[Rfam]
RNA sequence: GGUCGGGCGUGAGGCUAAUAAAAUACCCGCAAGGGAAAUAUGCCCGCCGUCUGUUUGCGGUUUUGAGCGCCUGGCCACCCUACU
Number, nucleotide and partner (000 for none) at each position: 001g076002g075003u074004c073005g072006g071007g070008c069009g068010u000011g000012a000013g044014g043015c042016u040017a039018a000019u000020a000021a000022a000023a000024u000025a000026c035027c034028c033029g000030c000031a000032a000033g028034g027035g026036a000037a000038a000039u017040a016041u000042g015043c014044c013045c000046g061047c060048c059049g058050u057051c000052u000053g000054u000055u000056u000057g050058c049059g048060g047061u046062u000063u000064u000065g000066a000067g000068c009069g008070c007071c006072u005073g004074g003075c002076c001077a000078c000079c000080c000081u000082a000083c000084u000
RNA: sRNA-Xcc1
Organism: Arsenophonus nasoniae